Shown here is a 252-nucleotide RNA sequence from Enterovirus coxsackiepol, a member of the family "Picornavirus internal ribosome entry site (IRES)". For this family Rfam cites "Structural and functional analysis of the 5' untranslated region of coxsackievirus B3 RNA: In vivo translational and infectivity studies of full-length mutants" (Liu et al., Virology, 1999). Gene Ontology term of the family: ribosome binding. From the family's description: This family represents the Picornavirus internal ribosome entry site (IRES). Taxonomically the source falls in Enterovirus C (Viruses, Riboviria, Pisuviricota, Pisoniviricetes). Pairs were carried over by alignment from the consensus structure, which was predicted with PFOLD.
RNA sequence: CAUGGGACGCUAGUUGUGAACAAGGUGUGAAGAGCCUAUUGAGCUACCUAAGAGUCCUCCGGCCCCUGAAUGCGGCUAAUCCUAACCACGGAGCAAGUGCCUUCAGCCCAGAAGGUAGCUUGUCGUAACGCGCAAGUCUGUGGCGGAACCGACUACUUUGGGUGUCCCGUGUUUCCCCUUAUUUUCAUUGUGGCUGCUUGCGGGACUAUAAUUGAUUGCCAUCAUAAAGCGAUUUGGAUUGGCCAUCCGGAG
Numbered sequence: 001c002a003u004g005g006g007a008c009g010c011u012a013g014u015u016g017u018g019a020a021c022a023a024g025g026u027g028u029g030a031a032g033a034g035c036c037u038a039u040u041g042a043g044c045u046a047c048c049u050a051a052g053a054g055u056c057c058u059c060c061g062g063c064c065c066c067u068g069a070a071u072g073c074g075g076c077u078a079a080u081c082c083u084a085a086c087c088a089c090g091g092a093g094c095a096a097g098u099g100c101c102u103u104c105a106g107c108c109c110a111g112a113a114g115g116u117a118g119c120u121u122g123u124c125g126u127a128a129c130g131c132g133c134a135a136g137u138c139u140g141u142g143g144c145g146g147a148a149c150c151g152a153c154u155a156c157u158u159u160g161g162g163u164g165u166c167c168c169g170u171g172u173u174u175c176c177c178c179u180u181a182u183u184u185u186c187a188u189u190g191u192g193g194c195u196g197c198u199u200g201c202g203g204g205a206c207u208a209u210a211a212u213u214g215a216u217u218g219c220c221a222u223c224a225u226a227a228a229g230c231g232a233u234u235u236g237g238a239u240u241g242g243c244c245a246u247c248c249g250g251a252g
Base pairs, nucleotide, nucleotide: 005011006010020026021025034197035196042195043194044193045192046191050184051183060169061168062167064162065161066160073151074150075149080147081146082145086143087142088141089140090139091138092137094122095121096120097119098117099116100115101114102113103112104111124130125129199226200225202223203222204220206218208216209215